This 117-nucleotide RNA from Primorskyibacter sedentarius belongs to the Rfam family "ALIL pseudoknot". NCBI's taxonomy places the organism under Bacteria, Alphaproteobacteria, Rhodobacterales, Roseobacteraceae, Primorskyibacter. A reference for the family is Mazauric et al. (2008), "Apical loop-internal loop RNA pseudoknots: a new type of stimulator of -1 translational frameshifting in bacteria", J Biol Chem. A search with the family's covariance model found it, with a score of 113 bits.
[Rfam]
RNA sequence: CGCAUAUUUUGCCCAGGCGGAGCUCGACCGCCCAAUGAAACGAUGAUCCGGUUCAUAGAAGAUCACCGGGGUGAUCAUGGGGUCGAGCCAAUCUGCCGCGUCCUGCCGAUUGCCCCA
Numbered sequence: 001c002g003c004a005u006a007u008u009u010u011g012c013c014c015a016g017g018c019g020g021a022g023c024u025c026g027a028c029c030g031c032c033c034a035a036u037g038a039a040a041c042g043a044u045g046a047u048c049c050g051g052u053u054c055a056u057a058g059a060a061g062a063u064c065a066c067c068g069g070g071g072u073g074a075u076c077a078u079g080g081g082g083u084c085g086a087g088c089c090a091a092u093c094u095g096c097c098g099c100g101u102c103c104u105g106c107c108g109a110u111u112g113c114c115c116c117a
Stems, first nucleotide, its partner, number of pairs: 016032005078117005089112002092109002095106002098103001